Shown here is a 94-nucleotide sequence from Anopheles gambiae, a member of the family "mir-210 microRNA precursor family". The family's consensus secondary structure was predicted with WAR. It is one of the family's seed sequences. Rfam 15.1 lists 790 matches to the family in 722 species. Taxonomically the source falls in Anopheles gambiae (Eukaryota, Bilateria, Panarthropoda, Arthropoda). Its family is annotated with RISC complex and miRNA-mediated post-transcriptional gene silencing in the Gene Ontology.
[Rfam]
RNA sequence: AAGAAAUUCAUUGCAGCUGCUGACCACUGCACAAGAUUAGAAUGCGACUCUUGUGCGUGUGACAACGGCUAUUAUGGGUUUUCAAAAUCAUUUU
Numbered sequence: 001a002a003g004a005a006a007u008u009c010a011u012u013g014c015a016g017c018u019g020c021u022g023a024c025c026a027c028u029g030c031a032c033a034a035g036a037u038u039a040g041a042a043u044g045c046g047a048c049u050c051u052u053g054u055g056c057g058u059g060u061g062a063c064a065a066c067g068g069c070u071a072u073u074a075u076g077g078g079u080u081u082u083c084a085a086a087a088u089c090a091u092u093u094u
Stems, first nucleotide, its partner, number of pairs: 005080007015070005021064002024061001025059002028057006035050002
Dot-bracket structure: ....(((((((...(((((.((.(((.((((((.((............)).)))))))).).)).)))))...)))))))..............